A member of the RNA family "Small nucleolar RNA SNORD24" from Moschus moschiferus, 73 nucleotides long. Rfam links the family to the GO terms nucleolus and RNA processing. Pairs were carried over by alignment from the consensus structure, which was predicted with PFOLD. Rfam classes the family as a C/D-box small nucleolar RNA.
[Rfam]
RNA sequence: UGCAAGGGAUGUGAAAGUGUUUCUUACCUGGAAGACGGUGAGGAGAUUUUAAACCACCAAGAUCGCUGAUGCA
Numbered sequence: 001u002g003c004a005a006g007g008g009a010u011g012u013g014a015a016a017g018u019g020u021u022u023c024u025u026a027c028c029u030g031g032a033a034g035a036c037g038g039u040g041a042g043g044a045g046a047u048u049u050u051a052a053a054c055c056a057c058c059a060a061g062a063u064c065g066c067u068g069a070u071g072c073a
Base pairs, nucleotide, nucleotide: 001073002072003071004070